[Rfam]
RNA: c-di-AMP riboswitch aptamer (ydaO/yuaA leader)
RNA sequence: GUUCCAGCCGCGCCGAGCCGAUAGCCGCACUGGCUAGCGGGCGGGGGACCCAGUCAACCCCGGGGCGAAUCGCGGUCCGAGCGCCGUGACGCGCAUAGCGCGAGCCCGACAGCUAACCCCGUAGGCGCAGCGACAAGAGCC
Numbered sequence: 001g002u003u004c005c006a007g008c009c010g011c012g013c014c015g016a017g018c019c020g021a022u023a024g025c026c027g028c029a030c031u032g033g034c035u036a037g038c039g040g041g042c043g044g045g046g047g048a049c050c051c052a053g054u055c056a057a058c059c060c061c062g063g064g065g066c067g068a069a070u071c072g073c074g075g076u077c078c079g080a081g082c083g084c085c086g087u088g089a090c091g092c093g094c095a096u097a098g099c100g101c102g103a104g105c106c107c108g109a110c111a112g113c114u115a116a117c118c119c120c121g122u123a124g125g126c127g128c129a130g131c132g133a134c135a136a137g138a139g140c141c
Stems, first nucleotide, its partner, number of pairs: 011127004018040003041122006051062001063107003071088004091101004